[Rfam]
RNA sequence: GGCGAUAAACGCCUUGCGGAAUAAGCGUUGUGGACCCGGGGGCGGUACCCGGCGCCUCCACCAAUCCCCUCUCUCCGGCCAAGCCGGCGGGCGGGCUCAUGGGGGCGAAACAGGAUCGACACGCGUGGUAAAGGCAUGGUCUUCGCUCGGCAUGGUUCCGCCGUUAUCGGGCCAUUGCAAUAGUUGCCAACGACAACGUUGCUCAGGCUCGCCUCGCUGCCUAA
Numbered sequence: 001g002g003c004g005a006u007a008a009a010c011g012c013c014u015u016g017c018g019g020a021a022u023a024a025g026c027g028u029u030g031u032g033g034a035c036c037c038g039g040g041g042g043c044g045g046u047a048c049c050c051g052g053c054g055c056c057u058c059c060a061c062c063a064a065u066c067c068c069c070u071c072u073c074u075c076c077g078g079c080c081a082a083g084c085c086g087g088c089g090g091g092c093g094g095g096c097u098c099a100u101g102g103g104g105g106c107g108a109a110a111c112a113g114g115a116u117c118g119a120c121a122c123g124c125g126u127g128g129u130a131a132a133g134g135c136a137u138g139g140u141c142u143u144c145g146c147u148c149g150g151c152a153u154g155g156u157u158c159c160g161c162c163g164u165u166a167u168c169g170g171g172c173c174a175u176u177g178c179a180a181u182a183g184u185u186g187c188c189a190a191c192g193a194c195a196a197c198g199u200u201g202c203u204c205a206g207g208c209u210c211g212c213c214u215c216g217c218u219g220c221c222u223a224a
Base pairs, nucleotide, nucleotide: 001147002146003145004144005143015136016135017134026125027124028123030122031121032120036052037051038050039049040048053107054106055105056104057103058102059101148163149162150161151160